[Rfam]
RNA sequence: GUUGUAAGUUCAAGGCCAUAGCAGAUGGCCUCAUGGUAUGGGCCCUGUCAGAUUCCACUGAAUCUGUAAAUAUUGCU
Numbered sequence: 001g002u003u004g005u006a007a008g009u010u011c012a013a014g015g016c017c018a019u020a021g022c023a024g025a026u027g028g029c030c031u032c033a034u035g036g037u038a039u040g041g042g043c044c045c046u047g048u049c050a051g052a053u054u055c056c057a058c059u060g061a062a063u064c065u066g067u068a069a070a071u072a073u074u075g076c077u
Stems, first nucleotide, its partner, number of pairs: 014044002016041002020077005027039001049066007
Shown here is a 77-nucleotide RNA sequence from Alligator sinensis, a member of the family "Mammalian CPEB3 ribozyme". Gene Ontology term of the family: RNA nuclease activity. Pairs were carried over by alignment from the consensus structure, which is taken from published work. Lineage of the source: Eukaryota > Opisthokonta > Archosauria > Alligatorinae > Alligator.